This 114-nucleotide RNA from Croceicoccus sp. YJ47 belongs to the Rfam family "Glycine riboswitch aptamer". Gene Ontology term of the family: glycine biosynthetic process.
Nucleotides: 114
Stems, first nucleotide, its partner, number of pairs: 006109001008107006020058001022056002060093003063089002067087003073081002
Number, partner (000 for none) and nucleotide at each position: 001000g002000c003000u004000g005000a006109c007000c008107g009106c010105g011104c012103g013102g014000g015000a016000g017000a018000g019000u020058g021000u022056c023055g024000c025000c026000g027000c028000g029000a030000u031000u032000c033000g034000u035000u036000c037000a038000u039000g040000c041000c042000g043000a044000a045000c046000g047000c048000a049000u050000c051000g052000u053000g054000u055023c056022g057000u058020c059000c060093g061092c062091c063089g064088a065000a066000g067087g068086a069085g070000c071000a072000a073081c074080c075000g076000c077000c078000c079000c080074g081073g082000a083000a084000a085069c086068u087067c088064u089063c090000a091062g092061g093060c094000a095000c096000c097000a098000g099000g100000g101000a102013c103012c104011g105010c106009g107008c108000c109006g110000g111000u112000c113000g114000a
NCBI's taxonomy places the organism under Bacteria, Pseudomonadati, Sphingomonadales, Erythrobacteraceae, Croceicoccus.